[Rfam]
RNA sequence: UGCAAGUAUUUUAUGAUUAAAAAGUAACUGUCUCUUGUACAAACCGUGUAUAAAUUU
Numbered sequence: 001u002g003c004a005a006g007u008a009u010u011u012u013a014u015g016a017u018u019a020a021a022a023a024g025u026a027a028c029u030g031u032c033u034c035u036u037g038u039a040c041a042a043a044c045c046g047u048g049u050a051u052a053a054a055u056u057u
Stems, first nucleotide, its partner, number of pairs: 018037003022033001024031002
The record is a 57-nucleotide RNA sequence from Beta vulgaris, which matches "Plastid-rps18 3UTR RNA" in Rfam. Plastid rps18 is a non-coding RNA (ncRNA) present in plastids. The family's consensus secondary structure was predicted with LocARNA.